[Rfam]
RNA sequence: UGAGUUGGCCGAACAGCCGCCGUUUUAUUUUUUAAUAAAAGGGAGGAAAGUCCGGGCUCCAUAGGGCAGGGUGCCAGGUAAUGCCUGGGAGGCGUGAGCCUACGGAAAGUGCCGCAGAAAAUAUACCGCCUGGUUUUUCGAAACCCGGUAAGGGUGAAAUGGUGCGGUAAGAGCGCACCGCGCGACUGGUAACAGGCGUGGCAGGGAAAACCCCACCCGGAGCAAGAUCAAAUAGAGGAGCAUACGCGUGGCCCGCGCGGCUCCUGGGUAGAUUGCUUGAGCGGCAAGGUGACUUGCCGCCUAGAUGAAUGGCUGUUCUCGACAGAACCCGGCUUACAGGCCAACUCACUUC
Number, nucleotide and partner (000 for none) at each position: 001u348002g347003a346004g345005u344006u343007g342008g341009c340010c339011g337012a317013a316014c315015a314016g313017c312018c311019g000020c043021c042022g000023u040024u039025u038026u037027a036028u035029u000030u000031u000032u000033u000034a000035a028036u027037a026038a025039a024040a023041g000042g021043g020044a000045g000046g000047a000048a335049a334050g333051u000052c332053c331054g330055g329056g328057c222058u221059c220060c219061a000062u000063a000064g254065g253066g252067c251068a000069g218070g217071g216072u215073g214074c088075c087076a086077g085078g084079u000080a000081a000082u000083g000084c078085c077086u076087g075088g074089g103090a101091g100092g099093c098094g000095u000096g000097a000098g093099c092100c091101u090102a000103c089104g213105g212106a000107a000108a000109g211110u210111g000112c206113c205114g000115c000116a000117g000118a000119a000120a000121a000122u000123a000124u000125a000126c153127c152128g149129c148130c147131u000132g145133g144134u143135u142136u141137u000138u000139c000140g000141a136142a135143a134144c133145c132146c000147g130148g129149u128150a000151a000152g127153g126154g000155u000156g000157a000158a000159a000160u000161g179162g178163u177164g176165c175166g174167g000168u000169a000170a000171g000172a000173g000174c166175g165176c164177a163178c162179c161180g202181c200182g199183c198184g197185a000186c195187u194188g193189g000190u000191a000192a000193c188194a187195g186196g000197c184198g183199u182200g181201g000202c180203a000204g000205g113206g112207a000208a000209a000210a110211c109212c105213c104214c073215a072216c071217c070218c069219g060220g059221a058222g057223c000224a000225a000226g274227a273228u272229c271230a000231a000232a000233u000234a000235g000236a265237g264238g263239a262240g261241c260242a000243u000244a000245c259246g258247c257248g256249u255250g000251g067252c066253c065254c064255g249256c248257g247258c246259g245260g241261c240262u239263c238264c237265u236266g000267g000268g000269u000270a000271g229272a228273u227274u226275g000276c000277u000278u000279g000280a000281g300282c299283g298284g297285c296286a295287a294288g293289g000290u000291g000292a000293c288294u287295u286296g285297c284298c283299g282300c281301c000302u000303a000304g000305a000306u000307g000308a000309a000310u000311g018312g017313c016314u015315g014316u013317u012318c000319u000320c000321g000322a000323c000324a000325g000326a000327a000328c056329c055330c054331g053332g052333c050334u049335u048336a000337c011338a000339g010340g009341c008342c007343a006344a005345c004346u003347c002348a001349c000350u000351u000352c000
RNA: Bacterial RNase P class A
Organism: Methylomonas paludis